RNA sequence: ACGCCGCCCGCGCGGCGUCCGUGCUCCCGAUCGAUGCGGGGCAACUGGGCGGGGGCGGUGCCGUGUCGGCGCAGCACCACCCCCGCCAC
Numbered sequence: 001a002c003g004c005c006g007c008c009c010g011c012g013c014g015g016c017g018u019c020c021g022u023g024c025u026c027c028c029g030a031u032c033g034a035u036g037c038g039g040g041g042c043a044a045c046u047g048g049g050c051g052g053g054g055g056c057g058g059u060g061c062c063g064u065g066u067c068g069g070c071g072c073a074g075c076a077c078c079a080c081c082c083c084c085g086c087c088a089c
Base pairs, nucleotide, nucleotide: 001018002017003016004015005014006013007012019047021045022044025040026039027038049086050085051084052083053082054081055080057078058077059076060075061074063072064071065070
RNA: Streptomyces RNA 6106